Annotation:
This 147-nucleotide RNA sequence from Gossypium laxum belongs to the Rfam family "MIR7502 microRNA precursor family".
RNA sequence: UAUUAAACUUUUCAUCUUUUUUUAAUGCUAAAAACUGAUAUAACUGACGGAAUAACCAUGUAUGUUACACGUGCCGCGUCACUUGUAUUUCAUUUUGAUGUACAUGAACCAGUUUUUUAAAAGUAAAAAUAGAUUAAAGUUUUAGCA
Numbered sequence: 001u002a003u004u005a006a007a008c009u010u011u012u013c014a015u016c017u018u019u020u021u022u023u024a025a026u027g028c029u030a031a032a033a034a035c036u037g038a039u040a041u042a043a044c045u046g047a048c049g050g051a052a053u054a055a056c057c058a059u060g061u062a063u064g065u066u067a068c069a070c071g072u073g074c075c076g077c078g079u080c081a082c083u084u085g086u087a088u089u090u091c092a093u094u095u096u097g098a099u100g101u102a103c104a105u106g107a108a109c110c111a112g113u114u115u116u117u118u119a120a121a122a123g124u125a126a127a128a129a130u131a132g133a134u135u136a137a138a139g140u141u142u143u144a145g146c147a
Stems, first nucleotide, its partner, number of pairs: 003145005009139004014134003019129006026122001029119005